[Rfam]
The family of this 243-nucleotide RNA from Streptomyces griseicoloratus is "Streptomyces sRNA 4677". Rfam's curators write: Located in the intergenic region between anti-sigma factor SCO4677 gene and a putative regulatory protein gene SCO4676. scr4677 expression requires the SCO4677 activity and scr4677 sRNA itself seem to affect the levels of the SCO4676-associated transcripts. The pairing is the family consensus, mapped onto this sequence. Lineage of the source: Bacteria > Bacillati > Actinomycetota > Kitasatosporales > Streptomyces.
RNA sequence: UGCUCCGGUGCUUCGGGCGCUCUGACCAAGGAAAACUGAGAGGAAAAGGACCCCACCAAGCCCCACCCCUCCCGCCCGCGGCGGCGACUCACUCGGGCGGGUGAACAUCACCGGCUCGGCUGGAUUUCCGAGCCCCCAACUCCCCUACUCUCAGCGCAGACAACCGCACAAAGACAUCGGCCCCCGCCGGGACUGCCAUCCCGAGGCGAGGGCCUGACCACCAAGGAAGAAGUGAGCUUCCCG
Numbered sequence: 001u002g003c004u005c006c007g008g009u010g011c012u013u014c015g016g017g018c019g020c021u022c023u024g025a026c027c028a029a030g031g032a033a034a035a036c037u038g039a040g041a042g043g044a045a046a047a048g049g050a051c052c053c054c055a056c057c058a059a060g061c062c063c064c065a066c067c068c069c070u071c072c073c074g075c076c077c078g079c080g081g082c083g084g085c086g087a088c089u090c091a092c093u094c095g096g097g098c099g100g101g102u103g104a105a106c107a108u109c110a111c112c113g114g115c116u117c118g119g120c121u122g123g124a125u126u127u128c129c130g131a132g133c134c135c136c137c138a139a140c141u142c143c144c145c146u147a148c149u150c151u152c153a154g155c156g157c158a159g160a161c162a163a164c165c166g167c168a169c170a171a172a173g174a175c176a177u178c179g180g181c182c183c184c185c186g187c188c189g190g191g192a193c194u195g196c197c198a199u200c201c202c203g204a205g206g207c208g209a210g211g212g213c214c215u216g217a218c219c220a221c222c223a224a225g226g227a228a229g230a231a232g233u234g235a236g237c238u239u240c241c242c243g
Stems, first nucleotide, its partner, number of pairs: 007222004016076004089104006119155005179214005185208003189202004225241005